[Rfam]
RNA sequence: UAAAUUUACGUAUUAAAAGAAGCCCGACAGCAAUCGGACUUCUUGACAGAGCCGUUUAAGACGGUGACUGCUUGGUAUUAAAUA
Numbered sequence: 001u002a003a004a005u006u007u008a009c010g011u012a013u014u015a016a017a018a019g020a021a022g023c024c025c026g027a028c029a030g031c032a033a034u035c036g037g038a039c040u041u042c043u044u045g046a047c048a049g050a051g052c053c054g055u056u057u058a059a060g061a062c063g064g065u066g067a068c069u070g071c072u073u074g075g076u077a078u079u080a081a082a083u084a
Stems, first nucleotide, its partner, number of pairs: 024037004051065006
Rfam assigns this 84-nucleotide RNA from Bombilactobacillus apium to the family "RNA anti-toxin A". Rfam links the family to the GO terms mRNA binding and negative regulation of translation. The organism belongs to Bombilactobacillus, within Bacteria. By type it is an antitoxin RNA. On this family, see Fozo et al., Nucleic Acids Res 2010: "Abundance of type I toxin-antitoxin systems in bacteria: searches for new candidates and discovery of novel families". Pairs were carried over by alignment from the consensus structure, which was predicted with RNAalifold.